Annotation
The family of this 70-nucleotide RNA from Vanessa tameamea is "mir-11 microRNA precursor family". NCBI's taxonomy places the organism under Eukaryota, Heteroneura, Nymphalidae, Nymphalini, Vanessa. The family's consensus secondary structure was predicted with RNAalifold. The family is grouped with related families in Rfam's "mir-6 clan". Rfam 15.1 lists 138 matches to the family in 136 species. Its family is annotated with miRNA-mediated post-transcriptional gene silencing, RISC complex and negative regulation of cell death in the Gene Ontology. For this family Rfam cites "Next-generation small RNA sequencing for microRNAs profiling in the honey bee Apis mellifera" (Chen et al., Insect Mol Biol, 2010).

RNA sequence: UCUUGUGGCUAGCACUCGGCACUGUGAUAUGUGUGUGCGUCACAUCACAGUCAGAGUUCUAGCUACACGG
Numbered sequence: 001u002c003u004u005g006u007g008g009c010u011a012g013c014a015c016u017c018g019g020c021a022c023u024g025u026g027a028u029a030u031g032u033g034u035g036u037g038c039g040u041c042a043c044a045u046c047a048c049a050g051u052c053a054g055a056g057u058u059c060u061a062g063c064u065a066c067a068c069g070g
Stems, first nucleotide, its partner, number of pairs: 004067003009062004014057004022050006031043003